This 125-nucleotide sequence from Populus tomentosa belongs to the Rfam family "mir-166 microRNA precursor family".
Rfam links the family to the GO terms RISC complex and miRNA-mediated post-transcriptional gene silencing.
A search with the family's covariance model found it, with a score of 84 bits.
Rfam 15.1 lists 2,599 matches to the family in 229 species.
For this family Rfam cites "MicroRNAs in plants" (Reinhart et al., Genes Dev, 2002).
The base pairs follow the family's consensus structure, which was predicted with PFOLD.
From the family's description: This family represents the plant microRNA (miRNA) precursor mir-166.
RNA sequence: UUUGAGGGGAAUGUUGUCUGGCUCGAGGACUCUUUCUUGAUCAGUCCAAUCAAGUUUUCUAUCUUUAGAUCUAACAUCUUAGAUCAUGUGUUAGGGUCGUCGGACCAGGCUUCAUUCCCCCCAAU
Numbered sequence: 001u002u003u004g005a006g007g008g009g010a011a012u013g014u015u016g017u018c019u020g021g022c023u024c025g026a027g028g029a030c031u032c033u034u035u036c037u038u039g040a041u042c043a044g045u046c047c048a049a050u051c052a053a054g055u056u057u058u059c060u061a062u063c064u065u066u067a068g069a070u071c072u073a074a075c076a077u078c079u080u081a082g083a084u085c086a087u088g089u090g091u092u093a094g095g096g097u098c099g100u101c102g103g104a105c106c107a108g109g110c111u112u113c114a115u116u117c118c119c120c121c122c123a124a125u
Base pairs, nucleotide, nucleotide: 002124003123004122006120007119008118009117010116011115012114013113016110017109018108019107020106021105024102025101026100